[Rfam]
Nucleotides: 173
Base pairs, nucleotide, nucleotide: 026040027039028038042081043080044079045078046077047076048075049074050073051072059071060070061069062068063067088172
Number, partner (000 for none) and nucleotide at each position: 001000c002000g003000c004000c005000c006000c007000g008000u009000c010000a011000u012000u013000g014000g015000g016000g017000a018000g019000u020000a021000g022000c023000c024000g025000c026040c027039c028038u029000g030000c031000g032000c033000c034000a035000c036000g037000c038028a039027g040026g041000g042081g043080c044079u045078c046077g047076c048075g049074u050073c051072a052000a053000c054000a055000c056000a057000c058000u059071u060070g061069g062068c063067c064000g065000u066000u067063g068062g069061c070060c071059a072051u073050g074049g075048c076047g077046c078045g079044a080043g081042c082000a083000g084000c085000u086000c087000c088172a089000c090000a091000c092000a093000c094000a095000g096000c097000c098000u099000g100000g101000c102000a103000a104000g105000a106000c107000c108000u109000u110000u111000g112000a113000c114000c115000a116000c117000a118000c119000g120000c121000c122000u123000c124000c125000g126000g127000u128000u129000c130000g131000g132000g133000c134000c135000g136000g137000g138000g139000u140000c141000g142000c143000g144000u145000c146000g147000u148000g149000g150000u151000c152000a153000u154000u155000g156000g157000a158000u159000u160000g161000g162000u163000g164000c165000c166000g167000g168000c169000c170000c171000g172088u173000u